[Rfam]
RNA sequence: GGGGGCGCAUUUGGUUUCGACGUGGAUUAUGAAGCUUAAUGGUGCAUGCCGAGUACGAUGCUAACUCGCUAAAAUUGUGUCAAAAAAAUAGUCGCAAAUGACGAAAACUUUGCUCUAGCUGCUUAAUAACCCAGCUAGUUCCUACUUCAGCUUGUCUGUAGGCCGAAAAUAGGAAUCAUAUAUACAGAACCGUUGAUGUCAGUGCCUUCCUGACUGAUACUAAACUAAAGAUAGGCUCGUUAGCAGAUUGUUUGAUCGUCGACUGUUUGCUAAUCAGAUUAAAGACGAAUCUAAGCAUGUAGAUCCUUAAGGUGAGAAUUUGCGGACGGGGGUUCAACUCCCCCCGCCUCCACCA
Numbered sequence: 001g002g003g004g005g006c007g008c009a010u011u012u013g014g015u016u017u018c019g020a021c022g023u024g025g026a027u028u029a030u031g032a033a034g035c036u037u038a039a040u041g042g043u044g045c046a047u048g049c050c051g052a053g054u055a056c057g058a059u060g061c062u063a064a065c066u067c068g069c070u071a072a073a074a075u076u077g078u079g080u081c082a083a084a085a086a087a088a089u090a091g092u093c094g095c096a097a098a099u100g101a102c103g104a105a106a107a108c109u110u111u112g113c114u115c116u117a118g119c120u121g122c123u124u125a126a127u128a129a130c131c132c133a134g135c136u137a138g139u140u141c142c143u144a145c146u147u148c149a150g151c152u153u154g155u156c157u158g159u160a161g162g163c164c165g166a167a168a169a170u171a172g173g174a175a176u177c178a179u180a181u182a183u184a185c186a187g188a189a190c191c192g193u194u195g196a197u198g199u200c201a202g203u204g205c206c207u208u209c210c211u212g213a214c215u216g217a218u219a220c221u222a223a224a225c226u227a228a229a230g231a232u233a234g235g236c237u238c239g240u241u242a243g244c245a246g247a248u249u250g251u252u253u254g255a256u257c258g259u260c261g262a263c264u265g266u267u268u269g270c271u272a273a274u275c276a277g278a279u280u281a282a283a284g285a286c287g288a289a290u291c292u293a294a295g296c297a298u299g300u301a302g303a304u305c306c307u308u309a310a311g312g313u314g315a316g317a318a319u320u321u322g323c324g325g326a327c328g329g330g331g332g333u334u335c336a337a338c339u340c341c342c343c344c345c346g347c348c349u350c351c352a353c354c355a
Base pairs, nucleotide, nucleotide: 001351002350003349004348005347006346007345021324022323023322024321025320026319027318028317030315033313035311036310039308041306042305045299046298047297048296049295050068051067052066053065054064057081058080059079060078061077115138116137117136118135119134120133121132139175140174141173142172143171144170146167147166148165150163151162152161153160154190155189157187195221197219198218199217200216201215202214203213209235210234211233212232239274240273241272242271243270244269245268246267247266248265250263251262252261254291255290256289258286259285260284328344329343330342331341332340
RNA: transfer-messenger RNA